[Rfam]
This 68-nucleotide RNA from Spodoptera littoralis belongs to the Rfam family "mir-2766 microRNA precursor family".
Its family is annotated with RISC complex and miRNA-mediated post-transcriptional gene silencing in the Gene Ontology.
RNA sequence: GUCUCGUCCAUCCUUCGUCUCGACUGGCGCUGCUAUACGCUUCAGUCUUGUCGAAUGGUGGGUGAGAU
Numbered sequence: 001g002u003c004u005c006g007u008c009c010a011u012c013c014u015u016c017g018u019c020u021c022g023a024c025u026g027g028c029g030c031u032g033c034u035a036u037a038c039g040c041u042u043c044a045g046u047c048u049u050g051u052c053g054a055a056u057g058g059u060g061g062g063u064g065a066g067a068u
Base pairs, nucleotide, nucleotide: 002067003066004065005064006063007062008061009060010059011058012057014055015054016053017052019050022047023046024045025044026043027042029040030039

It scores 76 bits against the family's covariance model.